[Rfam]
RNA sequence: AUUUAAUAAAUGUUCGUAUACCGUAUAUGCUCGAUAAUAUGGAUUGAGCGUUUCUACCAGGAGGCCAUAAACUACCUGACUACGAGUAUACGUCUGUUUCUGA
Numbered sequence: 001a002u003u004u005a006a007u008a009a010a011u012g013u014u015c016g017u018a019u020a021c022c023g024u025a026u027a028u029g030c031u032c033g034a035u036a037a038u039a040u041g042g043a044u045u046g047a048g049c050g051u052u053u054c055u056a057c058c059a060g061g062a063g064g065c066c067a068u069a070a071a072c073u074a075c076c077u078g079a080c081u082a083c084g085a086g087u088a089u090a091c092g093u094c095u096g097u098u099u100c101u102g103a
Stems, first nucleotide, its partner, number of pairs: 018089004022084004029049007058078004063073002
RNA: Purine riboswitch aptamer